Shown here is a 308-nucleotide RNA sequence from Monosporascus sp. MC13-8B, a member of the family "Group I catalytic intron". A search with the family's covariance model found it, with a score of 54 bits. The source organism's lineage runs through Eukaryota, Fungi, Xylariomycetidae, Xylariales and Monosporascus. The literature on the family includes a 1996 paper in Science by Cate et al., "Crystal structure of a group I ribozyme domain: principles of RNA packing". Rfam 15.1 lists 5,602 matches to the family in 1,395 species.
[Rfam]
RNA sequence: CCAUUUCAUUUUUGAUCACCUGAAAGAGGACUUGGGAAAUCCUCAAUUGUUGGGAAUAAACUGCCAAAUUACGGGAACCCCCUAGAACUUCAAGUACCAAGCUAUACUCGAAAGGGUAUAAGUGGAUGAACUAAUCACUCAUGUAAGGUAACAAGCUUGAAGGCUUCUGAAAAGAACGUGGGCAAUCGCGGAUCUAAGUCAGUAAUAUGUAAUAUUAUUGCUGUAAAAGAGCAACGAGUAUAUGGUAGUUGAUGUGGAAUUAAUUUUCCACAUUUAAGAUGUACUCUAAUGGGUUUUGAAAAGAACUA
Numbered sequence: 001c002c003a004u005u006u007c008a009u010u011u012u013u014g015a016u017c018a019c020c021u022g023a024a025a026g027a028g029g030a031c032u033u034g035g036g037a038a039a040u041c042c043u044c045a046a047u048u049g050u051u052g053g054g055a056a057u058a059a060a061c062u063g064c065c066a067a068a069u070u071a072c073g074g075g076a077a078c079c080c081c082c083u084a085g086a087a088c089u090u091c092a093a094g095u096a097c098c099a100a101g102c103u104a105u106a107c108u109c110g111a112a113a114g115g116g117u118a119u120a121a122g123u124g125g126a127u128g129a130a131c132u133a134a135u136c137a138c139u140c141a142u143g144u145a146a147g148g149u150a151a152c153a154a155g156c157u158u159g160a161a162g163g164c165u166u167c168u169g170a171a172a173a174g175a176a177c178g179u180g181g182g183c184a185a186u187c188g189c190g191g192a193u194c195u196a197a198g199u200c201a202g203u204a205a206u207a208u209g210u211a212a213u214a215u216u217a218u219u220g221c222u223g224u225a226a227a228a229g230a231g232c233a234a235c236g237a238g239u240a241u242a243u244g245g246u247a248g249u250u251g252a253u254g255u256g257g258a259a260u261u262a263a264u265u266u267u268c269c270a271c272a273u274u275u276a277a278g279a280u281g282u283a284c285u286c287u288a289a290u291g292g293g294u295u296u297u298g299a300a301a302a303g304a305a306c307u308a
Base pairs, nucleotide, nucleotide: 005030006029007028009026010025011024012023013022034042035041059250060249061248062247063246065244066243070192072190073189074187075186080182081181082180193230194229200223201222205218206217207216234287236286237285238284239283240282252273253272254271255270256269257268258267259266293306294305295304296303297302